RNA sequence: UAGUGCUUACAGUUCUUUUUGAAUUUGUUUAGUAGGUCUUAGGUUUUUACCGGAAGGCCCUC
Dot-bracket structure: ..................................((((((.(((....)))..))))))...
Numbered sequence: 001u002a003g004u005g006c007u008u009a010c011a012g013u014u015c016u017u018u019u020u021g022a023a024u025u026u027g028u029u030u031a032g033u034a035g036g037u038c039u040u041a042g043g044u045u046u047u048u049a050c051c052g053g054a055a056g057g058c059c060c061u062c
Stems, first nucleotide, its partner, number of pairs: 035059006042051003